[Rfam]
RNA: SAH (S-adenosyl-L-homocysteine) riboswitch aptamer
Organism: Noviherbaspirillum humi
Nucleotides: 086
Base pairs, nucleotide, nucleotide: 004053005052006051007050008049021042022041023040024039025038026037027036028035
Number, partner (000 for none) and nucleotide at each position: 001000a002000c003000u004053u005052c006051c007050a008049a009000g010000g011000a012000g013000c014000g015000u016000u017000g018000c019000a020000g021042c022041a023040u024039g025038c026037c027036g028035u029000u030000u031000u032000u033000c034000a035028a036027c037026g038025g039024c040023a041022u042021g043000u044000c045000a046000g047000g048000c049008u050007u051006g052005g053004a054000c055000c056000u057000c058000g059000c060000a061000u062000c063000a064000u065000u066000c067000g068000c069000a070000a071000a072000c073000c074000g075000c076000g077000c078000u079000c080000a081000c082000g083000u084000u085000a086000c